[Rfam]
RNA sequence: AAGGCCGCGAGGAAUUGUCCGCAGGAAGCCCGAGCGCAAAGAUGCGAGCCGACGAACAGAAACUGCAUAGAAGGCUUAGUCCUGGGGCGAGUUGGCACUUGACAACGAAGUCCAAGGGUACACGGGAUAGGGUAAAUGCAGCGGUUGUGCAUCGACAGAUCAUGAA
Numbered sequence: 001a002a003g004g005c006c007g008c009g010a011g012g013a014a015u016u017g018u019c020c021g022c023a024g025g026a027a028g029c030c031c032g033a034g035c036g037c038a039a040a041g042a043u044g045c046g047a048g049c050c051g052a053c054g055a056a057c058a059g060a061a062a063c064u065g066c067a068u069a070g071a072a073g074g075c076u077u078a079g080u081c082c083u084g085g086g087g088c089g090a091g092u093u094g095g096c097a098c099u100u101g102a103c104a105a106c107g108a109a110g111u112c113c114a115a116g117g118g119u120a121c122a123c124g125g126g127a128u129a130g131g132g133u134a135a136a137u138g139c140a141g142c143g144g145u146u147g148u149g150c151a152u153c154g155a156c157a158g159a160u161c162a163u164g165a166a
Stems, first nucleotide, its partner, number of pairs: 001016002005012002030164001037158001041153006047146005063141006074133003079128006085113004091106004